[Rfam]
RNA sequence: GCCCAGACGACCAUCAGUGGUCUGGGGUGCAGGAUUCAAACCUGUAGCUGUCUAGUGCCAGAGUGGUUCAUUUCCACUUUUCAGGU
Dot-bracket structure: (((..((.(..(.((((....)))).)((((((.......)))))).(((.(....).))).((((.......))))).))..)))
Overview
This 86-nucleotide RNA sequence from Herpetotheres cachinnans belongs to the Rfam family "Selenocysteine transfer RNA". The match comes from Rfam's covariance-model search (47 bits). NCBI's taxonomy places the organism under Eukaryota, Eumetazoa, Sarcopterygii, Saurischia, Herpetotheres.